RNA: mir-632 microRNA precursor family
RNA sequence: CUCGCCGCGGUGGCCGACGGGAGGUGGAAAGAGAACGAGGGUGUCGGCCAUUUUGUGUCUGUUUCCUGUGGGACGCGGCGGUG
Numbered sequence: 001c002u003c004g005c006c007g008c009g010g011u012g013g014c015c016g017a018c019g020g021g022a023g024g025u026g027g028a029a030a031g032a033g034a035a036c037g038a039g040g041g042u043g044u045c046g047g048c049c050a051u052u053u054u055g056u057g058u059c060u061g062u063u064u065c066c067u068g069u070g071g072g073a074c075g076c077g078g079c080g081g082u083g
Base pairs, nucleotide, nucleotide: 002081003080004079005078006077007076008075010074011073014072015071017069018068019067020066021065022064023063024062025061026060027059028058029056030054031053033049036046037045038044